[Rfam]
RNA sequence: GUGGGCAUCAAGGGGGCUGUGAUGUGUAGUCUAUUGUUCAUAUCACAGCCCGCUUUGAUGAGCUAUG
Dot-bracket structure: .....(((((((((((((((((..(((............)))))))))))).)))))))).......
RNA: mir-2 microRNA precursor family
Organism: Lingula anatina